[Rfam]
This 96-nucleotide sequence from Allacma fusca belongs to the Rfam family "mir-210 microRNA precursor family". Rfam 15.1 lists 790 matches to the family in 722 species. The source organism's lineage runs through Eukaryota, Bilateria, Protostomia, Allotriocarida and Allacma. The base pairs follow the family's consensus structure, which was predicted with WAR. A reference for the family is Cai et al. (2005), "Kaposi's sarcoma-associated herpesvirus expresses an array of viral microRNAs in latently infected cells", Proc Natl Acad Sci U S A.

RNA sequence: CAGUUGUCUAUAAAAGCUGCUGGCCACUGCUCAAGAUUAGCUUUAACACUCUUGUGCGUGUGACAGCGGCUAUUUUGGCUCAACUAAUGCAUCCCA
Numbered sequence: 001c002a003g004u005u006g007u008c009u010a011u012a013a014a015a016g017c018u019g020c021u022g023g024c025c026a027c028u029g030c031u032c033a034a035g036a037u038u039a040g041c042u043u044u045a046a047c048a049c050u051c052u053u054g055u056g057c058g059u060g061u062g063a064c065a066g067c068g069g070c071u072a073u074u075u076u077g078g079c080u081c082a083a084c085u086a087a088u089g090c091a092u093c094c095c096a
Stems, first nucleotide, its partner, number of pairs: 005082002008078003012074001015071008024062001025060002028058003032054002035051002